[Rfam]
RNA sequence: UCGUAACAUGAAUCGGUGUUAAAGGGCCCUGCCCAACGGCUACUGACAGGUGCUGUCGAGGCAGAGACCCUUUAGCACCGGUUCGUAUUACAAA
Dot-bracket structure: ..((((.(((((((((((((((((((...(.(.(.((.....((...)).....)).).)...)...))))))))))))))))))).))))...